[Rfam]
Shown here is a 319-nucleotide RNA from Apaloderma vittatum, a member of the family "Small Cajal body-specific RNA 7". Pairs were carried over by alignment from the consensus structure. On this family, see Darzacq et al., EMBO J 2002: "Cajal body-specific small nuclear RNAs: a novel class of 2'-O-methylation and pseudouridylation guide RNAs". Rfam classes the family as a small Cajal body RNA. Its family is annotated with RNA processing and nucleolus in the Gene Ontology.

RNA sequence: UGGAAGUGAUGAAACAGAGAUAAUUGGAUGUCCCUUUGAAUGGAGUGUGUGUGCGAUAAAUGGAAUUAAACCAAGUCUAGCUGGGGGUGGGCUGCGGGGGACGCGUGUGUGUGUGCGUGUACAGAAAAGGCUUUGAACGGGGGCGCUGACAACGCGGUGCUGAUUCCGGAGUGCAUCUGAGGCGUGUUGUUGAGUUCUGGGCUGCUGCUUUGCAACAUUGCCGAUGAUUAAAGCCCAAAACGAGCCCACCAGGACAAGCCUCGGCAUCUUAAAUCUCUAACAGGUUCAUUAAUGAAAGUGAUCCUGUGAUCUGAUCCAA
Numbered sequence: 001u002g003g004a005a006g007u008g009a010u011g012a013a014a015c016a017g018a019g020a021u022a023a024u025u026g027g028a029u030g031u032c033c034c035u036u037u038g039a040a041u042g043g044a045g046u047g048u049g050u051g052u053g054c055g056a057u058a059a060a061u062g063g064a065a066u067u068a069a070a071c072c073a074a075g076u077c078u079a080g081c082u083g084g085g086g087g088u089g090g091g092c093u094g095c096g097g098g099g100g101a102c103g104c105g106u107g108u109g110u111g112u113g114u115g116c117g118u119g120u121a122c123a124g125a126a127a128a129g130g131c132u133u134u135g136a137a138c139g140g141g142g143g144c145g146c147u148g149a150c151a152a153c154g155c156g157g158u159g160c161u162g163a164u165u166c167c168g169g170a171g172u173g174c175a176u177c178u179g180a181g182g183c184g185u186g187u188u189g190u191u192g193a194g195u196u197c198u199g200g201g202c203u204g205c206u207g208c209u210u211u212g213c214a215a216c217a218u219u220g221c222c223g224a225u226g227a228u229u230a231a232a233g234c235c236c237a238a239a240a241c242g243a244g245c246c247c248a249c250c251a252g253g254a255c256a257a258g259c260c261u262c263g264g265c266a267u268c269u270u271a272a273a274u275c276u277c278u279a280a281c282a283g284g285u286u287c288a289u290u291a292a293u294g295a296a297a298g299u300g301a302u303c304c305u306g307u308g309a310u311c312u313g314a315u316c317c318a319a
Stems, first nucleotide, its partner, number of pairs: 001318004185217006192210001193206003